mir-48 microRNA precursor family: an 84-nucleotide RNA sequence from Caenorhabditis brenneri. Its family is annotated with RISC complex and miRNA-mediated post-transcriptional gene silencing in the Gene Ontology. The family's consensus secondary structure was predicted with RNAalifold. The organism belongs to Caenorhabditis, within Eukaryota. It scores 75 bits against the family's covariance model.

RNA sequence: GAGAAGUUGAGGUAGGCUCAGUAGAUGCGAACGUAAAUGAGCCCACAUCGGCCUUUCACAUCCACUUGCCUUCCUCGCCUUUCC
Numbered sequence: 001g002a003g004a005a006g007u008u009g010a011g012g013u014a015g016g017c018u019c020a021g022u023a024g025a026u027g028c029g030a031a032c033g034u035a036a037a038u039g040a041g042c043c044c045a046c047a048u049c050g051g052c053c054u055u056u057c058a059c060a061u062c063c064a065c066u067u068g069c070c071u072u073c074c075u076c077g078c079c080u081u082u083c084c
Stems, first nucleotide, its partner, number of pairs: 001084001003082003008077004014071004020066003024062004029057003